Small nucleolar RNA R30/Z108: a 98-nucleotide RNA sequence from Brassica oleracea. Gene Ontology terms of the family: RNA processing and nucleolus. The source organism's lineage runs through Eukaryota, Tracheophyta, Euphyllophyta, Brassica and Brassica oleracea. For this family Rfam cites "Experimental RNomics. Identification of 140 Candidates for Small Non-Messenger RNAs in the Plant Arabidopsis thaliana" (Marker et al., Curr Biol, 2002). Pairs were carried over by alignment from the consensus structure, which was predicted with PFOLD. Rfam classes the family as a C/D-box small nucleolar RNA. A search with the family's covariance model found it, with a score of 88 bits. About the family: snoR30 is a C/D box small nucleolar RNA which acts as a methylation guide for 18S ribosomal RNA in plants.

RNA sequence: GGAGAUGGCAAUGAGGAUAUAACGCUCCCUCUUCUGAUUUCAGCUGAAGAAAUUUGCUGGCAGAAUCGAACCUAAUAUCACUAGCCAUCACUGAGUCA
Dot-bracket structure: .....((((.....................................................................................))))
Numbered sequence: 001g002g003a004g005a006u007g008g009c010a011a012u013g014a015g016g017a018u019a020u021a022a023c024g025c026u027c028c029c030u031c032u033u034c035u036g037a038u039u040u041c042a043g044c045u046g047a048a049g050a051a052a053u054u055u056g057c058u059g060g061c062a063g064a065a066u067c068g069a070a071c072c073u074a075a076u077a078u079c080a081c082u083a084g085c086c087a088u089c090a091c092u093g094a095g096u097c098a
Stems, first nucleotide, its partner, number of pairs: 006098004